[Rfam]
RNA sequence: CUCUUAUCCCGAGUAGGUGGAGGGACAGGGCCCUAUGAAACCCAGCAACCAGCUAUGUUUUGAACGACGAGGUGUGUAAAACAGCCUCUGUGACAAAAGCAAAGGUGCUAACCUGAAGCAAGGAUUUAGUCCUUGAACGAUAAGAG
Numbered sequence: 001c002u003c004u005u006a007u008c009c010c011g012a013g014u015a016g017g018u019g020g021a022g023g024g025a026c027a028g029g030g031c032c033c034u035a036u037g038a039a040a041c042c043c044a045g046c047a048a049c050c051a052g053c054u055a056u057g058u059u060u061u062g063a064a065c066g067a068c069g070a071g072g073u074g075u076g077u078a079a080a081a082c083a084g085c086c087u088c089u090g091u092g093a094c095a096a097a098a099g100c101a102a103a104g105g106u107g108c109u110a111a112c113c114u115g116a117a118g119c120a121a122g123g124a125u126u127u128a129g130u131c132c133u134u135g136a137a138c139g140a141u142a143a144g145a146g
Stems, first nucleotide, its partner, number of pairs: 001146008013043001016042003022033003030114001044109004049105002052100003119135006
Dot-bracket structure: ((((((((....(..(((...(((.....[)))......))))((((.((.(((...........................................)))...))))))....]....((((((.....))))))...))))))))
Record summary:
The record is a 146-nucleotide RNA sequence from Bacillus yapensis, which matches "SAM riboswitch aptamer (S box leader)" in Rfam. The match comes from Rfam's covariance-model search (71 bits). The family's consensus secondary structure is taken from published work. The SAM riboswitch is found upstream of a number of genes which code for proteins involved in methionine or cysteine biosynthesis in Gram-positive bacteria.